The family of this 147-nucleotide RNA from Pengzhenrongella sicca is "c-di-AMP riboswitch aptamer (ydaO/yuaA leader)".
RNA sequence: GCGCGUCUUUCGCUGGCAGGAGCGGGGGAACCAGGUAGUCCGGGCACCGGUGACGGUGCCCUUGGGGUGAAGCCGAUCGUGACGAUCGGCCGGGCGAACUCCCGCCCGAAUCCGACAGCUCACCCCGCAGGCGACCGGAGAGGUCCC
Numbered sequence: 001g002c003g004c005g006u007c008u009u010u011c012g013c014u015g016g017c018a019g020g021a022g023c024g025g026g027g028g029a030a031c032c033a034g035g036u037a038g039u040c041c042g043g044g045c046a047c048c049g050g051u052g053a054c055g056g057u058g059c060c061c062u063u064g065g066g067g068u069g070a071a072g073c074c075g076a077u078c079g080u081g082a083c084g085a086u087c088g089g090c091c092g093g094g095c096g097a098a099c100u101c102c103c104g105c106c107c108g109a110a111u112c113c114g115a116c117a118g119c120u121c122a123c124c125c126c127g128c129a130g131g132c133g134a135c136c137g138g139a140g141a142g143g144u145c146c147c
Stems, first nucleotide, its partner, number of pairs: 002133003009021003022128006032064004065113003073089004092107004
Description:
Rfam describes the family as follows. This family represents a conserved RNA structure found upstream of the ydaO and yuaA genes in Bacillus subtilis and related genes in other bacteria. It scores 63 bits against the family's covariance model. Lineage of the source: Bacteria > Bacillati > Actinomycetota > Micrococcales > Pengzhenrongella.